[Rfam]
RNA sequence: AUGAAAAUAGCGAGAGAUACCAGAAGUGGAGCCGAAGAAGCAAUAUAAAAAGCAGCCAACUUUUUAUAGAAUCUUUCAGGCAAAAGGAUCGCUAUGGGAUA
Numbered sequence: 001a002u003g004a005a006a007a008u009a010g011c012g013a014g015a016g017a018u019a020c021c022a023g024a025a026g027u028g029g030a031g032c033c034g035a036a037g038a039a040g041c042a043a044u045a046u047a048a049a050a051a052g053c054a055g056c057c058a059a060c061u062u063u064u065u066a067u068a069g070a071a072u073c074u075u076u077c078a079g080g081c082a083a084a085a086g087g088a089u090c091g092c093u094a095u096g097g098g099a100u101a
Stems, first nucleotide, its partner, number of pairs: 007095007020029003031081003034077002038075003044068009

Glycine riboswitch aptamer: a 101-nucleotide RNA sequence from Vallitalea pronyensis.
It scores 59 bits against the family's covariance model.